[Rfam]
RNA sequence: CGGUCGACAUCGGUGCACCGGCAGGAGUGGAGGACCCAAGCACGGCGGGCCCGUCCGGAAAGUCCGGACGACGCCCUUGGGGUGAAGCCGCAGAGCACGACGCGGCCGGGCAUCUUCGCCUGCCCGAACCCGACAGGUCAUCCUUCACAGGCGGCUGACGAAGGGUUA
Numbered sequence: 001c002g003g004u005c006g007a008c009a010u011c012g013g014u015g016c017a018c019c020g021g022c023a024g025g026a027g028u029g030g031a032g033g034a035c036c037c038a039a040g041c042a043c044g045g046c047g048g049g050c051c052c053g054u055c056c057g058g059a060a061a062g063u064c065c066g067g068a069c070g071a072c073g074c075c076c077u078u079g080g081g082g083u084g085a086a087g088c089c090g091c092a093g094a095g096c097a098c099g100a101c102g103c104g105g106c107c108g109g110g111c112a113u114c115u116u117c118g119c120c121u122g123c124c125c126g127a128a129c130c131c132g133a134c135a136g137g138u139c140a141u142c143c144u145u146c147a148c149a150g151g152c153g154g155c156u157g158a159c160g161a162a163g164g165g166u167u168a
Stems, first nucleotide, its partner, number of pairs: 001024001027148006037079004080131003088105004108125004
The family of this 168-nucleotide sequence from Streptomyces alboniger is "c-di-AMP riboswitch aptamer (ydaO/yuaA leader)". This family represents a conserved RNA structure found upstream of the ydaO and yuaA genes in Bacillus subtilis and related genes in other bacteria. A search with the family's covariance model found it, with a score of 40 bits. NCBI's taxonomy places the organism under Bacteria, Bacillati, Kitasatosporales, Streptomycetaceae, Streptomyces.